[Rfam]
RNA sequence: GAAUGGAGGAGUUUGCCCUGGGGCAGCCGUUGAACCGUUGGUUCAGCGACUGUCUCACGGCGCGCUCUUACCGUGC
Numbered sequence: 001g002a003a004u005g006g007a008g009g010a011g012u013u014u015g016c017c018c019u020g021g022g023g024c025a026g027c028c029g030u031u032g033a034a035c036c037g038u039u040g041g042u043u044c045a046g047c048g049a050c051u052g053u054c055u056c057a058c059g060g061c062g063c064g065c066u067c068u069u070a071c072c073g074u075g076c
Stems, first nucleotide, its partner, number of pairs: 003074004007069006014062002017059001019057005025051002028048009
mir-2830 microRNA precursor family: a 76-nucleotide sequence from Pieris macdunnoughi. NCBI's taxonomy places the organism under Eukaryota, Arthropoda, Aparaglossata, Pieridae, Pieris. The family's consensus secondary structure was predicted with RNAalifold.